[Rfam]
Rfam assigns this 172-nucleotide RNA sequence from Trinickia terrae to the family "Group II catalytic intron D1-D4-3". The base pairs follow the family's consensus structure. The organism belongs to Trinickia, within Bacteria.
RNA sequence: AUGAGGGCGACCGGGUGUGGGGAGGAAGCGUGGAGCGUAAAUCGCGAGCCGAUGGACAAGAACCGUAUAGAAGGCGCUGCCGAGCAGGGCGAGCGGGCAACGAACCACGAAGCUCUCGUGACCAGGGCGAAGCGGCGUAAAUGCGGCGGCUGUGCGAUGAAGGAGUGCGUUC
Dot-bracket structure: ((..((....))..))...........(.(((...(....(((((((((((...........((((((.....(((.(((...(..((((..(.((........)).)...))))............)...))).)))..))))))))))).))))))....)....))).)